[Rfam]
RNA: Guanidine-I riboswitch aptamer
Organism: Oleiphilus messinensis
RNA sequence: GCAAUAGAUGGCUAGGGUUCCGGCCGGUUACAACUGGCGACAGGUCCGAGAGCUAUCGACCUUUCAAGUGACAUUUCUGCACUUGGGCACCACCCAAUUCAGAACGGAAGGUUACACGGCGGGAUAAAAGCCCGGGAGGA
Numbered sequence: 001g002c003a004a005u006a007g008a009u010g011g012c013u014a015g016g017g018u019u020c021c022g023g024c025c026g027g028u029u030a031c032a033a034c035u036g037g038c039g040a041c042a043g044g045u046c047c048g049a050g051a052g053c054u055a056u057c058g059a060c061c062u063u064u065c066a067a068g069u070g071a072c073a074u075u076u077c078u079g080c081a082c083u084u085g086g087g088c089a090c091c092a093c094c095c096a097a098u099u100c101a102g103a104a105c106g107g108a109a110g111g112u113u114a115c116a117c118g119g120c121g122g123g124a125u126a127a128a129a130g131c132c133c134g135g136g137a138g139g140a
Stems, first nucleotide, its partner, number of pairs: 007057006015047002020044002022041001023038006058113008115135001117138001121133003